[Rfam]
About this RNA
A member of the RNA family "L31-Actinobacteria ribosomal protein leader" from Nocardia tenerifensis, 50 nucleotides long. The source organism's lineage runs through Bacteria, Bacillati, Actinomycetes, Nocardiaceae and Nocardia tenerifensis. Pairs were carried over by alignment from the consensus structure, which is taken from published work. The family's RNA type in Rfam is cis-regulatory leader.
RNA sequence: UCGGCUCCGGUUCACGUUCCCGCGAUUCCCGCGCGAGCGACCCGGCGGCC
Number, nucleotide and partner (000 for none) at each position: 001u000002c000003g050004g049005c048006u000007c045008c044009g043010g042011u000012u000013c000014a000015c039016g038017u037018u036019c035020c000021c033022g032023c031024g000025a000026u000027u000028c000029c000030c000031g023032c022033g021034c000035g019036a018037g017038c016039g015040a000041c000042c010043c009044g008045g007046c000047g000048g005049c004050c003